RNA sequence: GACGACCGGCUGGACACCCAUGUGUCCGGCCAGCAAGUGGAGGCUCCGAUCUCCCACCUGGUCGGCCCCAGGGCCGACGGGUCCCGGUCAGACGGUCACCCGGACGGCUUCCCGCCGAUCGGGCCCCGUCCGAUGCGCCCCGCGGAAUAGCGCGGCGGUGCUCCCGGUUGUGAGGAGCCCCGCCUGUCUCCCGUAUGGGGCGUUUUUU
Dot-bracket structure: ...((((((..((............))((((..((.((((((........)).)))).))(((((((....))))))).)))))))))).(((((.(.((....................)))..)))))......(((((((((....(.(((((((.(((((.........))))).))))).)).).)))..)))))).......
The record is a 208-nucleotide sequence from Streptomyces sp. DvalAA-14, which matches "Streptomyces RNA 1601" in Rfam.
The source organism's lineage runs through Bacteria, Bacillati, Actinomycetes, Kitasatosporales and Streptomyces.
Identified by deep sequencing of transcriptome at the end of exponential growth phase.
The match comes from Rfam's covariance-model search (138 bits).
The pairing is the family consensus, mapped onto this sequence.
The family's RNA type in Rfam is small RNA.